[Rfam]
RNA sequence: GCUGAGACUCAGCUGCUGACUCGUUGGCUCGAGAGCUCACAAUUAAGAUUGAUAUCAGUGCUUAGUUAAGGUGGUGUGCUUCUGAUCCAACGAUGCAGGAGCUGCAUUCAGUCG
Numbered sequence: 001g002c003u004g005a006g007a008c009u010c011a012g013c014u015g016c017u018g019a020c021u022c023g024u025u026g027g028c029u030c031g032a033g034a035g036c037u038c039a040c041a042a043u044u045a046a047g048a049u050u051g052a053u054a055u056c057a058g059u060g061c062u063u064a065g066u067u068a069a070g071g072u073g074g075u076g077u078g079c080u081u082c083u084g085a086u087c088c089a090a091c092g093a094u095g096c097a098g099g100a101g102c103u104g105c106a107u108u109c110a111g112u113c114g
Base pairs, nucleotide, nucleotide: 001112002111003110004109005108006107010104011103012102013101014100016098017097018096021093022092023091024090025089026088027087029085030084031083034080035079036078038076039075040074042072043071
The record is a 114-nucleotide sequence from Phaseolus vulgaris, which matches "MIR4414 microRNA precursor family" in Rfam. The source organism's lineage runs through Eukaryota, Viridiplantae, Embryophyta, rosids and Phaseolus. Rfam links the family to the GO terms miRNA-mediated post-transcriptional gene silencing and RISC complex. The match comes from Rfam's covariance-model search (119 bits).